This 25-nucleotide RNA from Serratia plymuthica belongs to the Rfam family "L25-Gammaproteobacteria ribosomal protein leader". The family's consensus secondary structure is taken from published work. On this family, see Eckert and Weinberg, BMC Microbiol 2020: "Discovery of 20 novel ribosomal leader candidates in bacteria and archaea". The source organism's lineage runs through Bacteria, Pseudomonadati, Pseudomonadota, Serratia and Serratia plymuthica.
RNA sequence: CCUGUUACUGGGUCGCCUUAACAGG
Numbered sequence: 001c002c003u004g005u006u007a008c009u010g011g012g013u014c015g016c017c018u019u020a021a022c023a024g025g
Stems, first nucleotide, its partner, number of pairs: 001025007010017002
Dot-bracket structure: (((((((..((....)).)))))))